[Rfam]
RNA sequence: UUUGGGGGAAGUAGUGGUCCGUUCCGUUUGUUUGGGGAAAAAGACAUCAUCCUUUGAGGUAAAAUUAGGUUUGCUUCCUUUUACUCCCAAUUUUUUUUACUGUGGGUAAAAAGAUCAUCAUGGGGGUAUAAAAGGAACCAAAUUUAAAUUUAACUCAAGGGAUUUUGAUGUCGUUUUCCCCAACAGGACGGAUCACUAUUUUUCCCAAG
Numbered sequence: 001u002u003u004g005g006g007g008g009a010a011g012u013a014g015u016g017g018u019c020c021g022u023u024c025c026g027u028u029u030g031u032u033u034g035g036g037g038a039a040a041a042a043g044a045c046a047u048c049a050u051c052c053u054u055u056g057a058g059g060u061a062a063a064a065u066u067a068g069g070u071u072u073g074c075u076u077c078c079u080u081u082u083a084c085u086c087c088c089a090a091u092u093u094u095u096u097u098u099a100c101u102g103u104g105g106g107u108a109a110a111a112a113g114a115u116c117a118u119c120a121u122g123g124g125g126g127u128a129u130a131a132a133a134g135g136a137a138c139c140a141a142a143u144u145u146a147a148a149u150u151u152a153a154c155u156c157a158a159g160g161g162a163u164u165u166u167g168a169u170g171u172c173g174u175u176u177u178c179c180c181c182a183a184c185a186g187g188a189c190g191g192a193u194c195a196c197u198a199u200u201u202u203u204c205c206c207a208a209g
Stems, first nucleotide, its partner, number of pairs: 003207021032183009046169004050162003054158005060152004065147009075137007082128008093113009
RNA: MIR2670 microRNA precursor family
Organism: Medicago truncatula